Selenocysteine insertion sequence 1: a 61-nucleotide sequence from Peromyscus maniculatus. Its family is annotated with selenocysteine incorporation in the Gene Ontology. Rfam 15.1 lists 3,793 matches to the family in 721 species. The incorporation of selenocysteine into a protein sequence is directed by an in-frame UGA codon (usually a stop codon) within the coding region of the mRNA. Selenoprotein mRNAs contain a conserved secondary structure in the 3' UTR that is required for the distinction of UGA stop from UGA selenocysteine. NCBI's taxonomy places the organism under Eukaryota, Teleostomi, Euteleostomi, Muroidea, Peromyscus maniculatus. A search with the family's covariance model found it, with a score of 41 bits. Rfam classes the family as a cis-regulatory element.
[Rfam]
RNA sequence: UAUUUGCUUAUGAUGGUCACAGCGUAAAGUGCACACCGCUGUGACUUGAUUUUUUUAAAAA
Numbered sequence: 001u002a003u004u005u006g007c008u009u010a011u012g013a014u015g016g017u018c019a020c021a022g023c024g025u026a027a028a029g030u031g032c033a034c035a036c037c038g039c040u041g042u043g044a045c046u047u048g049a050u051u052u053u054u055u056u057a058a059a060a061a
Base pairs, nucleotide, nucleotide: 001061003059004058005057015046016045017044018043019042020041021040022039023038024037029036030035